[Rfam]
RNA sequence: CUGUGGUGCAUUGUAGUUGCAUUGCACGUCUGGCUGUACACACAGUGCAAUGAAUCUGCUCUGCAGUACAG
Numbered sequence: 001c002u003g004u005g006g007u008g009c010a011u012u013g014u015a016g017u018u019g020c021a022u023u024g025c026a027c028g029u030c031u032g033g034c035u036g037u038a039c040a041c042a043c044a045g046u047g048c049a050a051u052g053a054a055u056c057u058g059c060u061c062u063g064c065a066g067u068a069c070a071g
Stems, first nucleotide, its partner, number of pairs: 001071004006067001007065004013059004021051007
RNA: mir-33 microRNA precursor family